RNA sequence: UCUGUCAACGGUAAGCGGACCGUAGAGAGCAUUAAGGAGUUGAUAGACUUGUUUAA
Numbered sequence: 001u002c003u004g005u006c007a008a009c010g011g012u013a014a015g016c017g018g019a020c021c022g023u024a025g026a027g028a029g030c031a032u033u034a035a036g037g038a039g040u041u042g043a044u045a046g047a048c049u050u051g052u053u054u055a056a
Stems, first nucleotide, its partner, number of pairs: 001047009
Description:
Bacillus-plasmid RNA: a 56-nucleotide sequence from Microbacterium sp. ZXX196. It is annotated as a small RNA. The base pairs follow the family's consensus structure, which is taken from published work. The source organism's lineage runs through Bacteria, Bacillati, Actinomycetota, Micrococcales and Microbacterium. The family has 31 seed sequences and 155 matches in Rfam 15.1.